Molybdenum/Tungsten riboswitch aptamer (Moco RNA motif): a 149-nucleotide RNA from Aliivibrio fischeri. It is one of the family's seed sequences. The organism belongs to Aliivibrio fischeri, within Bacteria.

RNA sequence: UGGCUGCCAUAACUCCGAGCUCAAGCUACUAAGUUGUUUUUUAAGAAGCACUCAAUAUGUAGCGUGAGCCAGUGACAAUUCGGUCACAAGGGUUUGUUUGGAAAUGAACAAGCCUCCCGUGUUUGGAAAGGUGUUCCGUGGCGCAACAA
Numbered sequence: 001u002g003g004c005u006g007c008c009a010u011a012a013c014u015c016c017g018a019g020c021u022c023a024a025g026c027u028a029c030u031a032a033g034u035u036g037u038u039u040u041u042u043a044a045g046a047a048g049c050a051c052u053c054a055a056u057a058u059g060u061a062g063c064g065u066g067a068g069c070c071a072g073u074g075a076c077a078a079u080u081c082g083g084u085c086a087c088a089a090g091g092g093u094u095u096g097u098u099u100g101g102a103a104a105u106g107a108a109c110a111a112g113c114c115u116c117c118c119g120u121g122u123u124u125g126g127a128a129a130g131g132u133g134u135u136c137c138g139u140g141g142c143g144c145a146a147c148a149a
Stems, first nucleotide, its partner, number of pairs: 011135003015131002019069005025063005033056004072087005090115011116126002